Shown here is a 105-nucleotide RNA from Clostridium kluyveri, a member of the family "SAM riboswitch aptamer (S box leader)". Rfam links the family to the GO term regulation of gene expression.

[Rfam]
RNA sequence: UUCUUAUCAAGAGAGGUAGAGGGACUGGCCCUGUGAUACCCGGCAACCUUAUUGUUUUCAAUGGUGCUAAUUCCAGCAGGCAUGUAUUUGCUUGACAGAUGAGAA
Numbered sequence: 001u002u003c004u005u006a007u008c009a010a011g012a013g014a015g016g017u018a019g020a021g022g023g024a025c026u027g028g029c030c031c032u033g034u035g036a037u038a039c040c041c042g043g044c045a046a047c048c049u050u051a052u053u054g055u056u057u058u059c060a061a062u063g064g065u066g067c068u069a070a071u072u073c074c075a076g077c078a079g080g081c082a083u084g085u086a087u088u089u090g091c092u093u094g095a096c097a098g099a100u101g102a103g104a105a
Stems, first nucleotide, its partner, number of pairs: 001105008013041001015040003021031003025076004042068004047064002049060001051058001072097001077094006

Rfam's curators put it in the seed alignment.